[Rfam]
RNA sequence: UGGCGGGCUAGCCCGGGUAACUCGGCGUUAUCUGUAACCCGAAACCGUCGAUAGCGGGGGGCGAAGCCAGAGGAAGAAGUUUUGACUGUUGCACAACCCAUGGGUUCUACUGUGAAACCCCGUCCUGUGGGGCUGGCGUUGGUGCAGGGGCUUUCCUUAAGGAAGGUUUCUGUAUCUUAAUUGCGGAAAACGGUCAGGCCCGGAAGGGAGCAAACCAGCCGUGGACAACUAUCGCUCAUGGGAUCGCGGGGCGGAGGCGAGUUUGUGGACCACUGUGCAAUGGAAGGGACGGCGACCCGAGGCGUGCUCGCUG
Numbered sequence: 001u002g003g004c005g006g007g008c009u010a011g012c013c014c015g016g017g018u019a020a021c022u023c024g025g026c027g028u029u030a031u032c033u034g035u036a037a038c039c040c041g042a043a044a045c046c047g048u049c050g051a052u053a054g055c056g057g058g059g060g061g062c063g064a065a066g067c068c069a070g071a072g073g074a075a076g077a078a079g080u081u082u083u084g085a086c087u088g089u090u091g092c093a094c095a096a097c098c099c100a101u102g103g104g105u106u107c108u109a110c111u112g113u114g115a116a117a118c119c120c121c122g123u124c125c126u127g128u129g130g131g132g133c134u135g136g137c138g139u140u141g142g143u144g145c146a147g148g149g150g151c152u153u154u155c156c157u158u159a160a161g162g163a164a165g166g167u168u169u170c171u172g173u174a175u176c177u178u179a180a181u182u183g184c185g186g187a188a189a190a191c192g193g194u195c196a197g198g199c200c201c202g203g204a205a206g207g208g209a210g211c212a213a214a215c216c217a218g219c220c221g222u223g224g225a226c227a228a229c230u231a232u233c234g235c236u237c238a239u240g241g242g243a244u245c246g247c248g249g250g251g252c253g254g255a256g257g258c259g260a261g262u263u264u265g266u267g268g269a270c271c272a273c274u275g276u277g278c279a280a281u282g283g284a285a286g287g288g289a290c291g292g293c294g295a296c297c298c299g300a301g302g303c304g305u306g307c308u309c310g311c312u313g
Stems, first nucleotide, its partner, number of pairs: 001313008011062004015033007038058004066303003072297002076293001079290002081287003086283010098268010110256002118251006124242008132233001134231003138226001141176016181224006192216003199208003
Shown here is a 313-nucleotide RNA from Candidatus Methanoperedens sp., a member of the family "Archaeal signal recognition particle RNA". For this family Rfam cites "Structural and energetic analysis of RNA recognition by a universally conserved protein from the signal recognition particle" (Batey et al., J Mol Biol, 2001). Rfam links the family to the GO terms signal recognition particle, plasma membrane targeting and SRP-dependent cotranslational protein targeting to membrane, signal sequence recognition. Pairs were carried over by alignment from the consensus structure, which is taken from published work. The family is grouped with related families in Rfam's "SRP clan".